[Rfam]
RNA: Small nucleolar RNA SNORD24
RNA sequence: UGCCACAAUGAUGACAUUUUAUUUGCUACUCUUGACAGUGGGAUGACGAUAGCCUUAAACCACCAUGAUUGUAACUGAGGCA
Numbered sequence: 001u002g003c004c005a006c007a008a009u010g011a012u013g014a015c016a017u018u019u020u021a022u023u024u025g026c027u028a029c030u031c032u033u034g035a036c037a038g039u040g041g042g043a044u045g046a047c048g049a050u051a052g053c054c055u056u057a058a059a060c061c062a063c064c065a066u067g068a069u070u071g072u073a074a075c076u077g078a079g080g081c082a
Base pairs, nucleotide, nucleotide: 001082002081003080004079